[Rfam]
RNA sequence: UUAGUCCUUCAGGGUUUGGUGAAAUUCCAUACCGGCGGUAAAGCCCGCCAGCCGAAAGGCAGAUCUGGUGAAAUUCCGGGGCCGACAGUAAAGUCUGGAUAAAAGAAGGAAAGC
Numbered sequence: 001u002u003a004g005u006c007c008u009u010c011a012g013g014g015u016u017u018g019g020u021g022a023a024a025u026u027c028c029a030u031a032c033c034g035g036c037g038g039u040a041a042a043g044c045c046c047g048c049c050a051g052c053c054g055a056a057a058g059g060c061a062g063a064u065c066u067g068g069u070g071a072a073a074u075u076c077c078g079g080g081g082c083c084g085a086c087a088g089u090a091a092a093g094u095c096u097g098g099a100u101a102a103a104a105g106a107a108g109g110a111a112a113g114c
Stems, first nucleotide, its partner, number of pairs: 005110006017029003031094002033084002035048004043082002051060003064080005086097003

Description
Shown here is a 114-nucleotide sequence from Clostridium liquoris, a member of the family "FMN riboswitch aptamer (RFN element)". Rfam's curators write: The RFN element is a highly conserved domain that is found frequently in the 5'-untranslated regions of prokaryotic mRNAs that encode for flavin mononucleotide (FMN) biosynthesis and transport proteins. It scores 108 bits against the family's covariance model. Gene Ontology term of the family: FMN binding. The organism belongs to Clostridium, within Bacteria. The family's consensus secondary structure is taken from published work.